[Rfam]
RNA sequence: ACGGCUCCGGUUCACGCCCGAUCACCGAUUCCGGCGACCCGGCGGCC
Dot-bracket structure: ..(((.((((....((((.((........)).))))..))))..)))
RNA: L31-Actinobacteria ribosomal protein leader